[Rfam]
RNA: Acido-Lenti-1 RNA
RNA sequence: CAUGGGGCUUUCACCCCAUGCUGACUUAUUUCGCUCUUUCAGAGCU
Numbered sequence: 001c002a003u004g005g006g007g008c009u010u011u012c013a014c015c016c017c018a019u020g021c022u023g024a025c026u027u028a029u030u031u032c033g034c035u036c037u038u039u040c041a042g043a044g045c046u
Base pairs, nucleotide, nucleotide: 001020002019003018004017005016006015007014033045034044035043036042037041